[Rfam]
RNA sequence: ACAGUACAGACUGAUCAGGUCAUAUGACUGGGCUGUUAAAAAACGGCAGCAGAUGAAAUCAACAGCAUCUGUGGGACAAGUG
Dot-bracket structure: .........((((..(.((((....))))..(((((......))))).((((((............))))))..).)).)).
A member of the RNA family "NiCo (Nickel/Cobalt) riboswitch aptamer" from Fusobacterium ulcerans, 82 nucleotides long. A reference for the family is Furukawa et al. (2015), "Bacterial riboswitches cooperatively bind Ni(2+) or Co(2+) ions and control expression of heavy metal transporters", Mol Cell. The source organism's lineage runs through Bacteria, Fusobacteriota, Fusobacteriales, Fusobacteriaceae and Fusobacterium ulcerans.